[Rfam]
RNA sequence: CUCUUAUCCAGAGUGGCGGAGGGACUGGCCCGAUGAAGCCCGGCAACCUAUACGAGCGGAAGCAGGAAGUUGGAGGUCGGAAGUCGGAAAUACACCGAUUUCGAGGACCGACGGCUAAUGCUUCCCGGAGUAAAAGGUGCCAAUUCCUGUAGGACCUAUGGGCCCUGGCAGAUGAGAG
Dot-bracket structure: ((((((((....(.(((...(((.[.[[)))......))))((((.(((...................................................................................)..))))))...(]].]((((.(......).))))..)))))))))
Numbered sequence: 001c002u003c004u005u006a007u008c009c010a011g012a013g014u015g016g017c018g019g020a021g022g023g024a025c026u027g028g029c030c031c032g033a034u035g036a037a038g039c040c041c042g043g044c045a046a047c048c049u050a051u052a053c054g055a056g057c058g059g060a061a062g063c064a065g066g067a068a069g070u071u072g073g074a075g076g077u078c079g080g081a082a083g084u085c086g087g088a089a090a091u092a093c094a095c096c097g098a099u100u101u102c103g104a105g106g107a108c109c110g111a112c113g114g115c116u117a118a119u120g121c122u123u124c125c126c127g128g129a130g131u132a133a134a135a136g137g138u139g140c141c142a143a144u145u146c147c148u149g150u151a152g153g154a155c156c157u158a159u160g161g162g163c164c165c166u167g168g169c170a171g172a173u174g175a176g177a178g
Stems, first nucleotide, its partner, number of pairs: 001178008013041001015040003021031003025149001027147002042141004047137002049133001145170001150167004155162001

A member of the RNA family "SAM riboswitch aptamer (S box leader)" from Clostridiales bacterium PH28_bin88, 178 nucleotides long. A search with the family's covariance model found it, with a score of 79 bits. Taxonomically the source falls in Eubacteriales (Bacteria, Bacillati, Bacillota, Clostridia).